RNA sequence: CAAUCUUCAGACAAUGAAAGCCCUGCCUCUCGUUCAUCCUUGCGGUUCCUUGACCGCGCCAGCGAAUGAAAAGCGCUUACCUGUUGUUC
Numbered sequence: 001c002a003a004u005c006u007u008c009a010g011a012c013a014a015u016g017a018a019a020g021c022c023c024u025g026c027c028u029c030u031c032g033u034u035c036a037u038c039c040u041u042g043c044g045g046u047u048c049c050u051u052g053a054c055c056g057c058g059c060c061a062g063c064g065a066a067u068g069a070a071a072a073g074c075g076c077u078u079a080c081c082u083g084u085u086g087u088u089c
Stems, first nucleotide, its partner, number of pairs: 034069003039062002041058007

Shown here is an 89-nucleotide sequence from Halalkalibacter suaedae, a member of the family "BsrC".
The 301 nucleotide sequence from Kouji Nakamura has been trimmed to a highly conserved ~85 nucleotide long core to form this family.
The base pairs follow the family's consensus structure, which was predicted with CMfinder.